[Rfam]
RNA sequence: UAUAAGUGCAGAUAGAGAUAUGCUGUAUACCUGUGUAACUGAACUAACGUUUAAGCGACAUGUAAUGUCGUCAGCCACAGGGACCGCCAGUAGGCGGUUUUUUUUUACU
Numbered sequence: 001u002a003u004a005a006g007u008g009c010a011g012a013u014a015g016a017g018a019u020a021u022g023c024u025g026u027a028u029a030c031c032u033g034u035g036u037a038a039c040u041g042a043a044c045u046a047a048c049g050u051u052u053a054a055g056c057g058a059c060a061u062g063u064a065a066u067g068u069c070g071u072c073a074g075c076c077a078c079a080g081g082g083a084c085c086g087c088c089a090g091u092a093g094g095c096g097g098u099u100u101u102u103u104u105u106u107a108c109u
Base pairs, nucleotide, nucleotide: 007027008026009025010024011023012021013020014019030081031080032079033078034077035076039074040073041072042051043050044049055071056070057069058068059067060066082099083098084097085096086095087094088093
Dot-bracket structure: ......((((((((....))).)))))..((((((...((((((....)))...((((((.....))))))))).))))))(((((((....)))))))..........
A member of the RNA family "DUF3800-I RNA" from Clostridium sp. FS41, 109 nucleotides long.
It is annotated as a small RNA.
From the family's description: Actinobacteria, Firmicutes, Fusobacteria, Proteobacteria (1 example), Tenericutes (2 examples).
The source organism's lineage runs through Bacteria, Bacillota, Clostridia, Eubacteriales and Clostridium.